[Rfam]
About this RNA
Shown here is a 124-nucleotide RNA from Cytobacillus horneckiae, a member of the family "RNA Staph. aureus E (RoxS)". Lineage of the source: Bacteria > Bacillati > Bacilli > Bacillaceae > Cytobacillus. Pairs were carried over by alignment from the consensus structure, which is taken from published work. From the family's description: It was shown to be regulated by the presence of nitric oxide (NO). In Bacillus subtilis it controls expression of genes with functions related to oxidative stress and oxidation-reduction reactions and it was renamed RoxS (for related to oxidative stress). For this family Rfam cites "A search for small noncoding RNAs in Staphylococcus aureus reveals a conserved sequence motif for regulation" (Geissmann et al., Nucleic Acids Res, 2009).
RNA sequence: GUGAAGUUAAUCACAAACAAACAUUUACCCCUUUGUUUGAUCGUGAAAAAUUUCUCCCAUCCCCUUUGUUUGUAUAAUAAUAAAUGAAAAGCCAUACGCCUCUUAGAGAGUGUAUGGCUUUUUC
Numbered sequence: 001g002u003g004a005a006g007u008u009a010a011u012c013a014c015a016a017a018c019a020a021a022c023a024u025u026u027a028c029c030c031c032u033u034u035g036u037u038u039g040a041u042c043g044u045g046a047a048a049a050a051u052u053u054c055u056c057c058c059a060u061c062c063c064c065u066u067u068g069u070u071u072g073u074a075u076a077a078u079a080a081u082a083a084a085u086g087a088a089a090a091g092c093c094a095u096a097c098g099c100c101u102c103u104u105a106g107a108g109a110g111u112g113u114a115u116g117g118c119u120u121u122u123u124c
Base pairs, nucleotide, nucleotide: 003054004053005052006051007050008049011046012045013044014043018039019038020037021036022035023034070084088121089120090119091118092117093116094115095114096113097112098111